Small nucleolar RNA SNORA74: a 202-nucleotide sequence from Oryctolagus cuniculus. Rfam classes the family as an H/ACA-box small nucleolar RNA. Lineage of the source: Eukaryota > Gnathostomata > Dipnotetrapodomorpha > Lagomorpha > Oryctolagus. Rfam describes the family as follows. U19 belongs to the H/ACA class of snoRNAs. snoRNAs bind a number of proteins (including dyskerin, Gar1p and Nop10p in the case of the H/ACA class) to form snoRNP complexes. This class are thought to guide the sites of modification of uridines to pseudouridines by forming direct base pairing interactions with substrate RNAs. Its family is annotated with nucleolus and RNA processing in the Gene Ontology. A reference for the family is Ganot et al. (1997), "The family of box ACA small nucleolar RNAs is defined by an evolutionarily conserved secondary structure and ubiquitous sequence elements essential for RNA accumulation", Genes Dev. It is one of the family's seed sequences.
RNA sequence: CCCAGCGGUUGUCAGCUGUCCAGGCUUGUAUGAUGCCUGUGAUGGUGUUACACUGUUGGGAGAGCAAACACUGUCUACACUGGGUUUGGCUCCGAGCACUGUUCUGGUGUGUUGUGGGCAAGAACCCUUAGGCAGUGUUUUGUGCCUCUGAGAGUGGAAUGACUCCUCCUGUGGGGUUGGUCCUAGUCUGGGUACAAACAAU
Dot-bracket structure: (((((((((.((..(((((((((((.........))))).))))))...))))))))))).......(((((((((.....(((((((.((.(((.((((.....)))))..)).)).)))..))))..))))))))).((((((((........(((.(((((((......))))))).)))......)))))))).....